[Rfam]
RNA sequence: AUGUGGGGUAGAGGCGCGAUAUUUAUUAGUUCCUUUUGGAGUGUAGAGCAACGAUGAAUAGAGGAAGAAGGAAAUAUUGCCGAAGUAUGUCAGUAGGCUCACUACUUUCAUACUGGGUCUGCAGUGAAUAACUGCAGGACUGUCUCAGCUGGUCUCCCAACCAACUGAGGGGUGCUAUCUCAAUC
Numbered sequence: 001a002u003g004u005g006g007g008g009u010a011g012a013g014g015c016g017c018g019a020u021a022u023u024u025a026u027u028a029g030u031u032c033c034u035u036u037u038g039g040a041g042u043g044u045a046g047a048g049c050a051a052c053g054a055u056g057a058a059u060a061g062a063g064g065a066a067g068a069a070g071g072a073a074a075u076a077u078u079g080c081c082g083a084a085g086u087a088u089g090u091c092a093g094u095a096g097g098c099u100c101a102c103u104a105c106u107u108u109c110a111u112a113c114u115g116g117g118u119c120u121g122c123a124g125u126g127a128a129u130a131a132c133u134g135c136a137g138g139a140c141u142g143u144c145u146c147a148g149c150u151g152g153u154c155u156c157c158c159a160a161c162c163a164a165c166u167g168a169g170g171g172g173u174g175c176u177a178u179c180u181c182a183a184u185c
Stems, first nucleotide, its partner, number of pairs: 006180006016080009031065006084114006092106004115141002118138008143170006